[Rfam]
RNA: Guanidine-I riboswitch aptamer
RNA sequence: UUAAUGGACGGCUAGGGUUCCGGCUUUCUUGCUCGAGUAAUCUCGGUGGAUUACAUGAGCUGGAAAGUGACUGGUCCGAGAGCUGUCGACCUUCCACGGGUAACCAUCACUACCCCCUGGCAGGUUACACGGCGGGAUAAAAGCCCGGGAGGA
Numbered sequence: 001u002u003a004a005u006g007g008a009c010g011g012c013u014a015g016g017g018u019u020c021c022g023g024c025u026u027u028c029u030u031g032c033u034c035g036a037g038u039a040a041u042c043u044c045g046g047u048g049g050a051u052u053a054c055a056u057g058a059g060c061u062g063g064a065a066a067g068u069g070a071c072u073g074g075u076c077c078g079a080g081a082g083c084u085g086u087c088g089a090c091c092u093u094c095c096a097c098g099g100g101u102a103a104c105c106a107u108c109a110c111u112a113c114c115c116c117c118u119g120g121c122a123g124g125u126u127a128c129a130c131g132g133c134g135g136g137a138u139a140a141a142a143g144c145c146c147g148g149g150a151g152g153a
Stems, first nucleotide, its partner, number of pairs: 007087006015077002020074002022071001023068006088126005094120002128148001130151001134146003